RNA sequence: GAGUCCCACCAGCCUAAUCCGCACACCGCAGUGCGGAGCCGGGGACCCAUUUCCCCCAUAGGGGCGAAUCGGCGCUUACCACGCCGUAGGGCUACUUCCAGGCCCGAGCCCGACAGCUAACCCGGUAGGCCGUGUGGAAGGACAUU
Number, nucleotide and partner (000 for none) at each position: 001g000002a000003g000004u000005c000006c000007c000008a000009c000010c000011a000012g130013c129014c128015u000016a000017a000018u037019c036020c035021g034022c033023a032024c031025a000026c000027c000028g000029c000030a000031g024032u023033g022034c021035g020036g019037a018038g126039c125040c124041g123042g122043g121044g000045a000046c000047c000048c061049a000050u000051u000052u000053c000054c000055c000056c000057c000058a000059u000060a000061g048062g111063g110064g109065c000066g000067a000068a000069u000070c086071g085072g084073c083074g000075c000076u000077u000078a000079c000080c000081a000082c000083g073084c072085c071086g070087u000088a000089g105090g104091g103092c102093u000094a000095c000096u000097u000098c000099c000100a000101g000102g092103c091104c090105c089106g000107a000108g000109c064110c063111c062112g000113a000114c000115a000116g000117c000118u000119a000120a000121c043122c042123c041124g040125g039126u038127a000128g014129g013130c012131c000132g000133u000134g000135u000136g000137g000138a000139a000140g000141g000142a000143c000144a000145u000146u000